[Rfam]
Source information
The family of this 136-nucleotide RNA is "Small nucleolar RNA SNORA42/SNORA80 family". Rfam 15.1 lists 1,535 matches to the family in 183 species. From the family's description: The members of this family belong to the H/ACA class of snoRNAs that guide the sites of modification of uridines to pseudouridines. The base pairs follow the family's consensus structure, which was predicted with RNAalifold.
RNA sequence: GCAUGGAUUUGGAUUUAUGGCAGGCUAGUCCCCAUGGGCCUCUCAUAGUGUCCCAUGCUAGAGCAAACUGUGGCUCCUAACCAUUGCCCAGCCUCCAUGCCUAUAGGCUACAGGCACUGAAGUACGUCACACAGUG
Number, nucleotide and partner (000 for none) at each position: 001g058002c057003a056004u055005g053006g052007a051008u050009u000010u000011g000012g000013a000014u000015u048016u047017a046018u045019g044020g043021c000022a041023g040024g039025c037026u036027a000028g000029u000030c000031c000032c000033c000034a000035u000036g026037g025038g000039c024040c023041u022042c000043u020044c019045a018046u017047a016048g015049u000050g008051u007052c006053c005054c000055a004056u003057g002058c001059u000060a000061g000062a000063g000064c000065a000066a000067a000068c000069u000070g000071u129072g128073g127074c126075u000076c000077c000078u000079a000080a000081c000082c119083a118084u000085u000086g000087c114088c113089c000090a109091g108092c107093c106094u105095c000096c000097a000098u000099g000100c000101c000102u000103a000104u000105a094106g093107g092108c091109u090110a000111c000112a000113g088114g087115c000116a000117c000118u083119g082120a000121a000122g000123u000124a000125c000126g074127u073128c072129a071130c000131a000132c000133a000134g000135u000136g000